[Rfam]
RNA: OmrA-B family
RNA sequence: CCCAGAGGUAUUGAUUGGUGAUUGUUCGGUAGGUAUGCCGGAAACUGAUUCUGAUAUGCCUGUCGCAACCAACACAUUACACCAACCUACGCGGAUGCGUAGGUUUUUUUU
Numbered sequence: 001c002c003c004a005g006a007g008g009u010a011u012u013g014a015u016u017g018g019u020g021a022u023u024g025u026u027c028g029g030u031a032g033g034u035a036u037g038c039c040g041g042a043a044a045c046u047g048a049u050u051c052u053g054a055u056a057u058g059c060c061u062g063u064c065g066c067a068a069c070c071a072a073c074a075c076a077u078u079a080c081a082c083c084a085a086c087c088u089a090c091g092c093g094g095a096u097g098c099g100u101a102g103g104u105u106u107u108u109u110u111u
Stems, first nucleotide, its partner, number of pairs: 016084005028070003085104008